[Rfam]
RNA sequence: GGUACCUUUAAUUCAGUCCCGUGAGGCUGACAAGGACAGCGGAAAUGUAAUGGAUCUCUAUUGGGUCUUUCUAUACCCAUACCUCCAUUCAAAAAAAGGCUUCCUGUCAGCGAUGGCAGGAAGCCUCUUUUA
Numbered sequence: 001g002g003u004a005c006c007u008u009u010a011a012u013u014c015a016g017u018c019c020c021g022u023g024a025g026g027c028u029g030a031c032a033a034g035g036a037c038a039g040c041g042g043a044a045a046u047g048u049a050a051u052g053g054a055u056c057u058c059u060a061u062u063g064g065g066u067c068u069u070u071c072u073a074u075a076c077c078c079a080u081a082c083c084u085c086c087a088u089u090c091a092a093a094a095a096a097a098g099g100c101u102u103c104c105u106g107u108c109a110g111c112g113a114u115g116g117c118a119g120g121a122a123g124c125c126u127c128u129u130u131u132a
Stems, first nucleotide, its partner, number of pairs: 005035004013030006046073002049070002052067002055064002097126013

This 132-nucleotide RNA sequence from Peribacillus deserti belongs to the Rfam family "PyrR binding site".
The family has 41 seed sequences and 1,498 matches in Rfam 15.1.
Pairs were carried over by alignment from the consensus structure, which is taken from published work.
The family's RNA type in Rfam is cis-regulatory element.
Rfam links the family to the GO terms pyrimidine nucleobase transport and pyrimidine nucleobase biosynthetic process.